[Rfam]
RNA sequence: CUCACCCGCACGGGAGAGUUCUGCACCGGUAGCGGUGCAGACGCCGAAGGAGCAACACCUCUCCGUCAAUCUCUCAGGCACCGAGGACCGUGCGGUUUUG
Number, nucleotide and partner (000 for none) at each position: 001c000002u000003c000004a000005c000006c095007c094008g093009c092010a091011c090012g089013g088014g000015a000016g000017a000018g000019u000020u041021c040022u039023g038024c037025a036026c035027c034028g000029g000030u000031a000032g000033c000034g027035g026036u025037g024038c023039a022040g021041a020042c000043g079044c078045c077046g075047a074048a000049g000050g073051a072052g071053c000054a000055a000056c000057a066058c065059c000060u000061c000062u000063c000064c000065g058066u057067c000068a000069a000070u000071c052072u051073c050074u047075c046076a000077g045078g044079c043080a000081c000082c000083g000084a000085g000086g000087a000088c013089c012090g011091u010092g009093c008094g007095g006096u000097u000098u000099u000100g000

Rfam assigns this 100-nucleotide sequence from Skermania sp. ID1734 to the family "Glycine riboswitch aptamer". The match comes from Rfam's covariance-model search (63 bits).